This 102-nucleotide RNA sequence from Proteiniborus ethanoligenes belongs to the Rfam family "Purine riboswitch aptamer".
The source organism's lineage runs through Bacteria, Bacillota, Clostridia, Eubacteriales and Proteiniborus.
A search with the family's covariance model found it, with a score of 84 bits.

[Rfam]
RNA sequence: GAAUAAUAUACAGAACAAACUCAUAUAUCUCCUAGAAUAUGGCUGGGAAGUCUCUACCGGGUUACCGUAAAUUUUCCGACUAUGAGUGGAAUAAUAUAUAAU
Numbered sequence: 001g002a003a004u005a006a007u008a009u010a011c012a013g014a015a016c017a018a019a020c021u022c023a024u025a026u027a028u029c030u031c032c033u034a035g036a037a038u039a040u041g042g043c044u045g046g047g048a049a050g051u052c053u054c055u056a057c058c059g060g061g062u063u064a065c066c067g068u069a070a071a072u073u074u075u076c077c078g079a080c081u082a083u084g085a086g087u088g089g090a091a092u093a094a095u096a097u098a099u100a101a102u
Stems, first nucleotide, its partner, number of pairs: 019087007030048006058078004064072001
The base pairs follow the family's consensus structure, which is taken from published work.